This 170-nucleotide RNA from Ureibacillus yapensis belongs to the Rfam family "glmS glucosamine-6-phosphate activated ribozyme aptamer". The match comes from Rfam's covariance-model search (124 bits). The source organism's lineage runs through Bacteria, Bacillati, Bacillota, Bacilli and Ureibacillus. The family's consensus secondary structure is taken from published work. The literature on the family includes a 2004 paper in Nature by Winkler et al., "Control of gene expression by a natural metabolite-responsive ribozyme". This entry contains a glucosamine-6-phosphate activated ribozyme that is found in the mRNA for GlmS. GlmS is an enzyme that uses fructose-6-phosphate and glutamine to generate glucosamine-6-phosphate. Rfam classes the family as a riboswitch.

RNA sequence: AAAACAAUCAAAGCGCCUGAGCUAAGGAAAUUGGACGAAACAAUCCUUAGUUGACGAGGUGGAGGAUAAUCGAACAUUCGGCGGAUACCUCCCGAUCGCAUGCCCGGUCGAUACUUUCGUUUUAAAGCAAAAAAGUGAUUUUUUGGACAGAAAAACGAAAAGGCAAAUAA
Numbered sequence: 001a002a003a004a005c006a007a008u009c010a011a012a013g014c015g016c017c018u019g020a021g022c023u024a025a026g027g028a029a030a031u032u033g034g035a036c037g038a039a040a041c042a043a044u045c046c047u048u049a050g051u052u053g054a055c056g057a058g059g060u061g062g063a064g065g066a067u068a069a070u071c072g073a074a075c076a077u078u079c080g081g082c083g084g085a086u087a088c089c090u091c092c093c094g095a096u097c098g099c100a101u102g103c104c105c106g107g108u109c110g111a112u113a114c115u116u117u118c119g120u121u122u123u124a125a126a127g128c129a130a131a132a133a134a135g136u137g138a139u140u141u142u143u144u145g146g147a148c149a150g151a152a153a154a155a156c157g158a159a160a161a162g163g164c165a166a167a168u169a170a
Stems, first nucleotide, its partner, number of pairs: 020052008029044001061092005070081004093110006115160007128145007